[Rfam]
RNA sequence: CUGAGAUAAAGGCACUCCUGUCGAAAGGCAGGUUCGCAAAGCUAGAUACCCUGAUAAACAGGGUGGUUCGGCUACCGGA
Numbered sequence: 001c002u003g004a005g006a007u008a009a010a011g012g013c014a015c016u017c018c019u020g021u022c023g024a025a026a027g028g029c030a031g032g033u034u035c036g037c038a039a040a041g042c043u044a045g046a047u048a049c050c051c052u053g054a055u056a057a058a059c060a061g062g063g064u065g066g067u068u069c070g071g072c073u074a075c076c077g078g079a
Base pairs, nucleotide, nucleotide: 012037013036017032018031019030020029021028022027040073041072042071043070045069046068048064049063050062051061052060053059
Description
Rfam assigns this 79-nucleotide sequence from Halonatronomonas betaini to the family "c-di-GMP-I riboswitch aptamer". The base pairs follow the family's consensus structure, which is taken from published work. The source organism's lineage runs through Bacteria, Clostridia, Halanaerobiales, Halarsenatibacteraceae and Halonatronomonas.